A member of the RNA family "Small nucleolar RNA U3" from Rousettus aegyptiacus, 215 nucleotides long. A reference for the family is Zwieb (1997), "The uRNA database", Nucleic Acids Res. Taxonomically the source falls in Rousettus (Eukaryota, Deuterostomia, Gnathostomata, Eutheria). Gene Ontology terms of the family: nucleolus and RNA processing. Small nucleolar RNAs (snoRNAs) are involved in the processing and modification of rRNA in the nucleolus. There are two main classes of snoRNAs: the box C/D class, and the box H/ACA class. U3 snoRNA is a member of the box C/D class.
[Rfam]
Nucleotides: 215
Stems, first nucleotide, its partner, number of pairs: 002040002006035002009032003015027004049065002054061001075215005094203012108165003118153004124147004128142005168189002170186007
Number, partner (000 for none) and nucleotide at each position: 001000a002040a003039g004000a005000c006035u007034a008000u009032a010031c011030u012000u013000u014000c015027a016026g017025g018024g019000a020000u021000c022000a023000u024018u025017u026016c027015u028000a029000u030011a031010g032009u033000u034007u035006g036000u037000u038000a039003c040002u041000a042000g043000a044000g045000a046000a047000g048000u049065u050064u051000c052000u053000c054061u055000g056000a057000a058000c059000g060000u061054g062000u063000a064050g065049a066000g067000c068000a069000c070000c071000c072000a073000a074000a075215a076214c077213c078212a079211c080000g081000a082000g083000g084000a085000g086000g087000a088000g089000g090000u091000a092000u093000a094203g095202u096201g097200u098199u099198c100197u101196u102195u103194u104193c105192u106000g107000a108165g109164c110163g111000u112000g113000a114000a115000g116000u117000u118153g119152g120151c121150u122000u123000u124147u125146g126145g127144c128142g129141u130140u131139u132138c133000u134000u135000u136000g137000u138132g139131g140130a141129a142128c143000u144127g145126u146125c147124a148000u149000u150121a151120g152119c153118u154000g155000u156000u157000g158000a159000u160000g161000a162000u163110c164109g165108u166000u167000c168189u169188u170186c171185u172184c173183u174182u175181c176180u177000u178000u179000u180176a181175g182174a183173a184172g185171a186170g187000u188169g189168g190000g191000a192105a193104g194103a195102a196101g197100a198099g199098a200097a201096c202095a203094c204000u205000g206000u207000c208000u209000g210000a211079g212078u213077g214076g215075u